[Rfam]
The record is a 103-nucleotide RNA from Geotrypetes seraphini, which matches "mir-130 microRNA precursor family" in Rfam. On this family, see Lagos-Quintana et al., Curr Biol 2002: "Identification of tissue-specific microRNAs from mouse".
RNA sequence: CUUUAAUCUUUGCUCUUUUAAUGUUGGACUUGUGUUCAGCAAGUCAAGUUUUAAAGGGUCUUUGCUGAACACAAGUCCAACAUUAAAAGAGCAAAGAUUAAAG
Numbered sequence: 001c002u003u004u005a006a007u008c009u010u011u012g013c014u015c016u017u018u019u020a021a022u023g024u025u026g027g028a029c030u031u032g033u034g035u036u037c038a039g040c041a042a043g044u045c046a047a048g049u050u051u052u053a054a055a056g057g058g059u060c061u062u063u064g065c066u067g068a069a070c071a072c073a074a075g076u077c078c079a080a081c082a083u084u085a086a087a088a089g090a091g092c093a094a095a096g097a098u099u100a101a102a103g
Stems, first nucleotide, its partner, number of pairs: 002103002005099006012092008022082022